Notes: The record is a 124-nucleotide RNA sequence from Cucurbita maxima, which matches "MIR390 microRNA precursor family" in Rfam. The family's consensus secondary structure was predicted with WAR.

RNA sequence: CGGAAGAGUCCGUUAAGCUCAGGAGGGAUAGCGCCGCUGUUGCAUCACCCCCCCCCCACCCCCCUUCCCACGCCCUCCUAUUCUCUUCCGGCGCUAUCCAUCCUGAGUUUCAUGGCUUCUUCUU
Numbered sequence: 001c002g003g004a005a006g007a008g009u010c011c012g013u014u015a016a017g018c019u020c021a022g023g024a025g026g027g028a029u030a031g032c033g034c035c036g037c038u039g040u041u042g043c044a045u046c047a048c049c050c051c052c053c054c055c056c057c058a059c060c061c062c063c064c065u066u067c068c069c070a071c072g073c074c075c076u077c078c079u080a081u082u083c084u085c086u087u088c089c090g091g092c093g094c095u096a097u098c099c100a101u102c103c104u105g106a107g108u109u110u111c112a113u114g115g116c117u118u119c120u121u122c123u124u
Stems, first nucleotide, its partner, number of pairs: 010115001016109009026099010